A member of the RNA family "mir-399 microRNA precursor family" from Triticum turgidum, 87 nucleotides long. Pairs were carried over by alignment from the consensus structure, which was predicted with PFOLD. About the family: mir-399 was identified in both Arabidopsis thaliana and Oryza sativa computationally and was later experimentally verified. mir-399 is thought to target mRNAs coding for a phosphatase transporter. A reference for the family is Jones-Rhoades and Bartel (2004), "Computational Identification of Plant MicroRNAs and Their Targets, Including a Stress-Induced miRNA", Mol Cell. NCBI's taxonomy places the organism under Eukaryota, Embryophyta, Liliopsida, Poales, Triticum turgidum.

RNA sequence: CCAUGCAUUACUGGGCGGAUCUCCUUGGGUAGUAGCCUGAUCAAACAAUCAGCCACUGCCAAAGGAGACUUGCCCAGCGAUGCAGCG
Numbered sequence: 001c002c003a004u005g006c007a008u009u010a011c012u013g014g015g016c017g018g019a020u021c022u023c024c025u026u027g028g029g030u031a032g033u034a035g036c037c038u039g040a041u042c043a044a045a046c047a048a049u050c051a052g053c054c055a056c057u058g059c060c061a062a063a064g065g066a067g068a069c070u071u072g073c074c075c076a077g078c079g080a081u082g083c084a085g086c087g
Stems, first nucleotide, its partner, number of pairs: 005083005011077008021067004028060006035053001